Annotation
Shown here is an 89-nucleotide RNA from Spirodela intermedia, a member of the family "mir-160 microRNA precursor family". Rfam 15.1 lists 1,502 matches to the family in 247 species. For this family Rfam cites "Prediction of plant microRNA targets" (Rhoades et al., Cell, 2002). Lineage of the source: Eukaryota > Streptophytina > Liliopsida > Lemnoideae > Spirodela.

RNA sequence: UUGUGCCUGGCUCCCUGUAUGCCACACGUAUGGAUCAAUCUAUAUGAAAGAUUGGCUACUGCGGGUGGCGUGCGAGGAGCCAAGCAUAC
Numbered sequence: 001u002u003g004u005g006c007c008u009g010g011c012u013c014c015c016u017g018u019a020u021g022c023c024a025c026a027c028g029u030a031u032g033g034a035u036c037a038a039u040c041u042a043u044a045u046g047a048a049a050g051a052u053u054g055g056c057u058a059c060u061g062c063g064g065g066u067g068g069c070g071u072g073c074g075a076g077g078a079g080c081c082a083a084g085c086a087u088a089c
Stems, first nucleotide, its partner, number of pairs: 002088005008082007016074009027063003